[Rfam]
RNA sequence: UUAGCUAUUUUAGAUAGGUUUGUAUUCAUGAAUCAUGGAUACAAACAGCAAAAGACUGUUUUUGUAUCUAUGAUGGCUAGAGCACUUUGUACUGAACAAACAGCCACGUAGACAAUCCUAAGUGGCUAACAAAAGUAAUGAACUAACGACUUUUAUCAAUCCAUUUAGGCAUAUUGUCUGAAUGGAUUUUUUGUUUUAUCAA
Numbered sequence: 001u002u003a004g005c006u007a008u009u010u011u012a013g014a015u016a017g018g019u020u021u022g023u024a025u026u027c028a029u030g031a032a033u034c035a036u037g038g039a040u041a042c043a044a045a046c047a048g049c050a051a052a053a054g055a056c057u058g059u060u061u062u063u064g065u066a067u068c069u070a071u072g073a074u075g076g077c078u079a080g081a082g083c084a085c086u087u088u089g090u091a092c093u094g095a096a097c098a099a100a101c102a103g104c105c106a107c108g109u110a111g112a113c114a115a116u117c118c119u120a121a122g123u124g125g126c127u128a129a130c131a132a133a134a135g136u137a138a139u140g141a142a143c144u145a146a147c148g149a150c151u152u153u154u155a156u157c158a159a160u161c162c163a164u165u166u167a168g169g170c171a172u173a174u175u176g177u178c179u180g181a182a183u184g185g186a187u188u189u190u191u192u193g194u195u196u197u198a199u200c201a202a
Base pairs, nucleotide, nucleotide: 001080002079003078004077005076006075007074011070012069013068014067015066016065018046019045020044021043022042023041024040025039026038027037028036029035049064050063051062052061053060086146087145089143090142092140102127103126104125105124106123107122109120110119111118148178149177150176154173155172
Enterococcus sRNA 2410: a 202-nucleotide RNA from Enterococcus termitis. NCBI's taxonomy places the organism under Bacteria, Bacilli, Lactobacillales, Enterococcaceae, Enterococcus. Rfam's curators put it in the seed alignment. The family's RNA type in Rfam is small RNA. About the family: Produced as 2 transcripts on Northern blot.